RNA sequence: GAGGUUAAUGACCAAGUGCCCGUAUCGGUGAAAACAGGCAGAUCGUAAAGACGCCGUAAAUACAUCCUUGUAGGCUCGAACCGCGCCUUCCCUGGCGCGGACGCUUU
Numbered sequence: 001g002a003g004g005u006u007a008a009u010g011a012c013c014a015a016g017u018g019c020c021c022g023u024a025u026c027g028g029u030g031a032a033a034a035c036a037g038g039c040a041g042a043u044c045g046u047a048a049a050g051a052c053g054c055c056g057u058a059a060a061u062a063c064a065u066c067c068u069u070g071u072a073g074g075c076u077c078g079a080a081c082c083g084c085g086c087c088u089u090c091c092c093u094g095g096c097g098c099g100g101a102c103g104c105u106u107u
Base pairs, nucleotide, nucleotide: 014106015105016104017103018102020028021027022026030077031076041066042065043064045063046062047061051057052056081100082099083098084097085096086095087094